[Rfam]
A member of the RNA family "S15-Halobacteria ribosomal protein leader", 67 nucleotides long. The literature on the family includes a 2020 paper in BMC Microbiol by Eckert and Weinberg, "Discovery of 20 novel ribosomal leader candidates in bacteria and archaea".

RNA sequence: GUGGGAACGGCACGGUCGCAAAUCUGACUCGCCGCCCGUUCUGGGUGGCUUGGGAUUGCGAUAGUGC
Numbered sequence: 001g002u003g004g005g006a007a008c009g010g011c012a013c014g015g016u017c018g019c020a021a022a023u024c025u026g027a028c029u030c031g032c033c034g035c036c037c038g039u040u041c042u043g044g045g046u047g048g049c050u051u052g053g054g055a056u057u058g059c060g061a062u063a064g065u066g067c
Stems, first nucleotide, its partner, number of pairs: 010067004015062007024054002031049007